This 67-nucleotide sequence belongs to the Rfam family "pemK RNA".
Rfam classes the family as a cis-regulatory element.
RNA sequence: ACAAUGAAACUUCCGUAAAUCCCCGGCCCGGCCAAUAAAGAAGCCGGGGUGGCUGAAAAGCCAAUGA
Numbered sequence: 001a002c003a004a005u006g007a008a009a010c011u012u013c014c015g016u017a018a019a020u021c022c023c024c025g026g027c028c029c030g031g032c033c034a035a036u037a038a039a040g041a042a043g044c045c046g047g048g049g050u051g052g053c054u055g056a057a058a059a060g061c062c063a064a065u066g067a
Base pairs, nucleotide, nucleotide: 012064013026014025015024027049028048029047031045033043050063051062052061